A member of the RNA family "STnc490 Hfq binding RNA" from Firmicutes bacterium CAG:114, 115 nucleotides long.
The family's RNA type in Rfam is small RNA.
The family's consensus secondary structure was predicted with WAR.
NCBI's taxonomy places the organism under Bacteria, Bacillati, Bacillota.
RNA sequence: AACCACUCGCUAGGCGAGUGGUUCAAAAGAAGCCUUAUGGCGAUGAUGCAGACAUCAAAACUCCCUUUGCUAUAAUAAAAGUGCGGUCUGCCAACUGCACUAAAAAUAGCAAAGG
Numbered sequence: 001a002a003c004c005a006c007u008c009g010c011u012a013g014g015c016g017a018g019u020g021g022u023u024c025a026a027a028a029g030a031a032g033c034c035u036u037a038u039g040g041c042g043a044u045g046a047u048g049c050a051g052a053c054a055u056c057a058a059a060a061c062u063c064c065c066u067u068u069g070c071u072a073u074a075a076u077a078a079a080a081g082u083g084c085g086g087u088c089u090g091c092c093a094a095c096u097g098c099a100c101u102a103a104a105a106a107u108a109g110c111a112a113a114g115g
Base pairs, nucleotide, nucleotide: 001023002022003021004020005019006018007017008016009015010014029044032041033040034039064115065114066113067112068111069110070109071108072107073103080101081100082099083098084097085096086095087094